[Rfam]
Notes:
Rfam assigns this 267-nucleotide sequence from Crocuta crocuta to the family "bip internal ribosome entry site (IRES)". Gene Ontology term of the family: ribosome binding. The base pairs follow the family's consensus structure, which was predicted with PFOLD. For this family Rfam cites "Continuous heat shock enhances translational initiation directed by internal ribosomal entry site" (Kim and Jang, Biochem Biophys Res Commun, 2002). A search with the family's covariance model found it, with a score of 151 bits. About the family: This family represents the bip internal ribosome entry site (IRES). BiP protein expression has been found to be significantly enhanced by the heat shock response due to IRES-dependent translation. It is thought that this translational mechanism is essential for the survival of cells under stress.

RNA sequence: GCUUGGCUGAGACAUCACAGAUUCAACGACUUGGGAGAUUUCGUGAGGCUGAGAGGUAAGCGCCGCGGCCUGGCUUUCCGGACCUGCCCUUCGCGUUUUGCGAUGCUCCUGCUCACCCCGGGCCCUGUAUCUUCAGAUCAGUAAGCUCGGUGCGCUCCCGUGCGGCGGCCUGUGGUUGGAUUGCGUCUGACGUCCUUCCUCCCUGCUGACCGAGUGGCCUACGGCGCCGGCAAGAUGAAGCUGACCCUGGUGGCUGCGGUGCUGCUG
Numbered sequence: 001g002c003u004u005g006g007c008u009g010a011g012a013c014a015u016c017a018c019a020g021a022u023u024c025a026a027c028g029a030c031u032u033g034g035g036a037g038a039u040u041u042c043g044u045g046a047g048g049c050u051g052a053g054a055g056g057u058a059a060g061c062g063c064c065g066c067g068g069c070c071u072g073g074c075u076u077u078c079c080g081g082a083c084c085u086g087c088c089c090u091u092c093g094c095g096u097u098u099u100g101c102g103a104u105g106c107u108c109c110u111g112c113u114c115a116c117c118c119c120g121g122g123c124c125c126u127g128u129a130u131c132u133u134c135a136g137a138u139c140a141g142u143a144a145g146c147u148c149g150g151u152g153c154g155c156u157c158c159c160g161u162g163c164g165g166c167g168g169c170c171u172g173u174g175g176u177u178g179g180a181u182u183g184c185g186u187c188u189g190a191c192g193u194c195c196u197u198c199c200u201c202c203c204u205g206c207u208g209a210c211c212g213a214g215u216g217g218c219c220u221a222c223g224g225c226g227c228c229g230g231c232a233a234g235a236u237g238a239a240g241c242u243g244a245c246c247c248u249g250g251u252g253g254c255u256g257c258g259g260u261g262c263u264g265c266u267g
Stems, first nucleotide, its partner, number of pairs: 004256006016162003020158001031120001033118003037114001060108001062106002066102002166178005